Notes: This 72-nucleotide RNA sequence from Euglena gracilis belongs to the Rfam family "tRNA". The base pairs follow the family's consensus structure, which is taken from published work. Rfam's curators put it in the seed alignment.
RNA sequence: UGAGGCGUAGCCAAGUGGUAAGGCAACGGGUUUUGGCCCUGUCAUUCGGAGGUUCGAAUCCUCCCGCCUCAG
Numbered sequence: 001u002g003a004g005g006c007g008u009a010g011c012c013a014a015g016u017g018g019u020a021a022g023g024c025a026a027c028g029g030g031u032u033u034u035g036g037c038c039c040u041g042u043c044a045u046u047c048g049g050a051g052g053u054u055c056g057a058a059u060c061c062u063c064c065c066g067c068c069u070c071a072g
Stems, first nucleotide, its partner, number of pairs: 001071007010024003026042005048064005